[Rfam]
RNA sequence: UUUCCAUUCAGUAGUCCCGUUCAAUUACAAUAUUCGUCCGGGUUGGACAUAAUGGAGAAAUAAGCAUUGACAUAUUUUGCUGCAGAACGAAAUUUAUUUUGUCUUGUAUGCCAUAUAUGUUGUACAUUU
Numbered sequence: 001u002u003u004c005c006a007u008u009c010a011g012u013a014g015u016c017c018c019g020u021u022c023a024a025u026u027a028c029a030a031u032a033u034u035c036g037u038c039c040g041g042g043u044u045g046g047a048c049a050u051a052a053u054g055g056a057g058a059a060a061u062a063a064g065c066a067u068u069g070a071c072a073u074a075u076u077u078u079g080c081u082g083c084a085g086a087a088c089g090a091a092a093u094u095u096a097u098u099u100u101g102u103c104u105u106g107u108a109u110g111c112c113a114u115a116u117a118u119g120u121u122g123u124a125c126a127u128u129u
Stems, first nucleotide, its partner, number of pairs: 001058008011048002014044001017041003022036001027033001068122004073117003079111002081108005087102002090100003

The family of this 129-nucleotide sequence from Caenorhabditis bovis is "Caenorhabditis sRNA ceN93". It is annotated as a small RNA. Lineage of the source: Eukaryota > Bilateria > Rhabditina > Rhabditoidea > Caenorhabditis. Pairs were carried over by alignment from the consensus structure, which was predicted with WAR. On this family, see Jia et al., BMC Mol Biol 2007: "Systematic identification of non-coding RNA 2,2,7-trimethylguanosine cap structures in Caenorhabditis elegans".